[Rfam]
RNA: ffh sRNA
Organism: Rhodovulum sp. 12E13
RNA sequence: CGGCGGCGGGAUCGCCCCCCACCAGCGCGUCGCGCCCGUGGGGGCAUUUGCG
Numbered sequence: 001c002g003g004c005g006g007c008g009g010g011a012u013c014g015c016c017c018c019c020c021a022c023c024a025g026c027g028c029g030u031c032g033c034g035c036c037c038g039u040g041g042g043g044g045c046a047u048u049u050g051c052g
Base pairs, nucleotide, nucleotide: 016044017043018042019041020040021039022038025035026034027033028032